[Rfam]
Description
A member of the RNA family "Guanidine-II riboswitch aptamer (mini-ykkC)" from Hyalella azteca, 54 nucleotides long.
RNA sequence: GCGGCAGGACGACCUGCCACGCCGGCCACAUCCCGUGGCAGCAGGACGACCUGC
Numbered sequence: 001g002c003g004g005c006a007g008g009a010c011g012a013c014c015u016g017c018c019a020c021g022c023c024g025g026c027c028a029c030a031u032c033c034c035g036u037g038g039c040a041g042c043a044g045g046a047c048g049a050c051c052u053g054c
Stems, first nucleotide, its partner, number of pairs: 001020001003018006041054005

Annotation
On this family, see Weinberg et al., Nucleic Acids Res 2007: "Identification of 22 candidate structured RNAs in bacteria using the CMfinder comparative genomics pipeline". Rfam describes the family as follows. Simpler in structure and has fewer highly conserved nucleotide positions than the ykkC-yxkD leader. Despite this each of its two stem-loop structures directly bind free guanidine. Therefore, mini-ykkC RNA motif represents a distinct class of guanidine-sensing RNAs. Its crystal structure was also determined.